This 170-nucleotide RNA from Stackebrandtia albiflava belongs to the Rfam family "c-di-AMP riboswitch aptamer (ydaO/yuaA leader)". It scores 77 bits against the family's covariance model. The organism belongs to Stackebrandtia, within Bacteria. The family has 106 seed sequences and 7,607 matches in Rfam 15.1.
[Rfam]
RNA sequence: CGGGUGACACCGCCGAAUCGUUCGAGCACGAGCCGGGGACCCAGUUCCCGGGGUGAAUCCGUCACCGGGACCGGUGACGGUAGGGCGCAGACAACCGGCCGAAUGCCGAGCACCGCUUCUUCCCGCCCGAACCCGUCAGCUAACCCGGUAGGCGGAUACCAGGAAGAAGG
Numbered sequence: 001c002g003g004g005u006g007a008c009a010c011c012g013c014c015g016a017a018u019c020g021u022u023c024g025a026g027c028a029c030g031a032g033c034c035g036g037g038g039a040c041c042c043a044g045u046u047c048c049c050g051g052g053g054u055g056a057a058u059c060c061g062u063c064a065c066c067g068g069g070a071c072c073g074g075u076g077a078c079g080g081u082a083g084g085g086c087g088c089a090g091a092c093a094a095c096c097g098g099c100c101g102a103a104u105g106c107c108g109a110g111c112a113c114c115g116c117u118u119c120u121u122c123c124c125g126c127c128c129g130a131a132c133c134c135g136u137c138a139g140c141u142a143a144c145c146c147g148g149u150a151g152g153c154g155g156a157u158a159c160c161a162g163g164a165a166g167a168a169g170g
Stems, first nucleotide, its partner, number of pairs: 011154004018031003032149006042050001051134003059080009083128004